The record is a 118-nucleotide RNA from Candidatus Planktophila limnetica, which matches "SAM (S-adenosyl methionine) riboswitch aptamer" in Rfam. The match comes from Rfam's covariance-model search (82 bits). Rfam links the family to the GO terms S-adenosylmethionine metabolic process and regulation of gene expression. SAM-IV is a mRNA element that regulates gene expression via direct sensing of S-adenosylmethionine (SAM or AdoMet). SAM-IV riboswitches share conserved nucleotide positions with the previously described SAM-I riboswitches sequence analysis and molecular recognition experiments suggest that SAM-I and SAM-IV riboswitches share similar ligand binding sites, but have different scaffolds.
[Rfam]
RNA sequence: GGUCACGAGUUCUAGUUAUAGCCCCAGCUUGCUAGACGGCAACCCUCCACCGCGGCGGGGUGCUCUGGGUGAAGACCUGGCAGGGUUACAUCUGAUGUGGCUGCUGCAAGUGCGUCGA
Number, nucleotide and partner (000 for none) at each position: 001g077002g076003u075004c074005a000006c000007g000008a000009g037010u000011u036012c035013u034014a033015g032016u031017u000018a000019u000020a029021g028022c000023c000024c000025c000026a000027g000028c021029u020030u000031g016032c015033u014034a013035g012036a011037c009038g064039g063040c062041a000042a000043c060044c059045c058046u000047c055048c054049a000050c000051c000052g000053c000054g048055g047056c000057g000058g045059g044060g043061u000062g040063c039064u038065c000066u000067g000068g000069g000070u000071g000072a000073a000074g004075a003076c002077c001078u000079g000080g107081c106082a105083g104084g000085g101086u100087u099088a098089c097090a096091u000092c000093u000094g000095a000096u090097g089098u088099g087100g086101c085102u000103g000104c083105u082106g081107c080108a000109a000110g000111u000112g000113c000114g000115u000116c000117g000118a000